The family of this 71-nucleotide sequence from Orthonyx spaldingii is "Small nucleolar RNA SNORD63". snoRNA U63 is found in both humans and mice. For this family Rfam cites "Purified box C/D snoRNPs are able to reproduce site-specific 2'-O-methylation of target RNA in vitro" (Galardi et al., Mol Cell Biol, 2002).
[Rfam]
RNA sequence: GUGCUAUGAUGCCAACUGUCAACACAUCAUUCUGAGAAGAAUUGUGUGGAGCCCUUGUGGCACUGAGCACC
Numbered sequence: 001g002u003g004c005u006a007u008g009a010u011g012c013c014a015a016c017u018g019u020c021a022a023c024a025c026a027u028c029a030u031u032c033u034g035a036g037a038a039g040a041a042u043u044g045u046g047u048g049g050a051g052c053c054c055u056u057g058u059g060g061c062a063c064u065g066a067g068c069a070c071c
Stems, first nucleotide, its partner, number of pairs: 001070004